[Rfam]
Shown here is a 534-nucleotide part of an RNA from Cladonia borealis, a member of the family "Eukaryotic large subunit ribosomal RNA". On this family, see Cannone et al., BMC Bioinformatics 2002: "The comparative RNA web (CRW) site: an online database of comparative sequence and structure information for ribosomal, intron, and other RNAs". Gene Ontology terms of the family: structural constituent of ribosome and ribosome. Lineage of the source: Eukaryota > Opisthokonta > Ascomycota > Pezizomycotina > Cladonia.
RNA sequence: UAGAACAAUGUAGAUAAGGGAAGUCGGCAAAAUAGAUCCGUAACUUCGGGAAAAGGAUUGGCUCUAAGGGUUGGGUACGUUGGGCCUUGGGGGGACGUCCUUGGAGCAGCUGGGUUCUAGACGGGCAACCGUUCGGCGCCCGGCAGCAUCAGGGUUCAGACGCCCUUGGCAGGCUUCGGCCGUCCGGCGUACAUUUAACAACCAACUUAGAACUGGUACGGACAAGGGGAAUCUGACUGUCUAAUUAAAACAUAGCAUUGCGAUGGCCAGAAAGUGGUGUUGACGCAAUGUGAUUUCUGCCCAGUGCUCUGAAUGUGAGUUGUCGGCGAGGACCCUGUUGGAAUUAAAAGGAAUAGACGUGCUAACGGUUUUGUAGGUCAAAGUGAAGAAAUUCAAAUAAGCGCGGGUAAACGGCGGGAGUAACUAUGACUCUCUUAAGGUAGCCAAAUGCCUCGUCAUCUAAUUAGUGACGCGCAUGAAUGGAUUAACGAGAUUCCCACUGUCCCUAUCUACUAUCUAGCGAAACCACAGCCA
Numbered sequence: 001u002a003g004a005a006c007a008a009u010g011u012a013g014a015u016a017a018g019g020g021a022a023g024u025c026g027g028c029a030a031a032a033u034a035g036a037u038c039c040g041u042a043a044c045u046u047c048g049g050g051a052a053a054a055g056g057a058u059u060g061g062c063u064c065u066a067a068g069g070g071u072u073g074g075g076u077a078c079g080u081u082g083g084g085c086c087u088u089g090g091g092g093g094g095a096c097g098u099c100c101u102u103g104g105a106g107c108a109g110c111u112g113g114g115u116u117c118u119a120g121a122c123g124g125g126c127a128a129c130c131g132u133u134c135g136g137c138g139c140c141c142g143g144c145a146g147c148a149u150c151a152g153g154g155u156u157c158a159g160a161c162g163c164c165c166u167u168g169g170c171a172g173g174c175u176u177c178g179g180c181c182g183u184c185c186g187g188c189g190u191a192c193a194u195u196u197a198a199c200a201a202c203c204a205a206c207u208u209a210g211a212a213c214u215g216g217u218a219c220g221g222a223c224a225a226g227g228g229g230a231a232u233c234u235g236a237c238u239g240u241c242u243a244a245u246u247a248a249a250a251c252a253u254a255g256c257a258u259u260g261c262g263a264u265g266g267c268c269a270g271a272a273a274g275u276g277g278u279g280u281u282g283a284c285g286c287a288a289u290g291u292g293a294u295u296u297c298u299g300c301c302c303a304g305u306g307c308u309c310u311g312a313a314u315g316u317g318a319g320u321u322g323u324c325g326g327c328g329a330g331g332a333c334c335c336u337g338u339u340g341g342a343a344u345u346a347a348a349a350g351g352a353a354u355a356g357a358c359g360u361g362c363u364a365a366c367g368g369u370u371u372u373g374u375a376g377g378u379c380a381a382a383g384u385g386a387a388g389a390a391a392u393u394c395a396a397a398u399a400a401g402c403g404c405g406g407g408u409a410a411a412c413g414g415c416g417g418g419a420g421u422a423a424c425u426a427u428g429a430c431u432c433u434c435u436u437a438a439g440g441u442a443g444c445c446a447a448a449u450g451c452c453u454c455g456u457c458a459u460c461u462a463a464u465u466a467g468u469g470a471c472g473c474g475c476a477u478g479a480a481u482g483g484a485u486u487a488a489c490g491a492g493a494u495u496c497c498c499a500c501u502g503u504c505c506c507u508a509u510c511u512a513c514u515a516u517c518u519a520g521c522g523a524a525a526c527c528a529c530a531g532c533c534a
Stems, first nucleotide, its partner, number of pairs: 001519004010513007018505003035059005044049001060214002063211006069203005075192009084170003089165003097156001099154006106147002109144007117136002120133005215219001227498007234490002238252003255291008266278004295484003299415003304412002306408004311404001314403003320396003416434006435439001455471005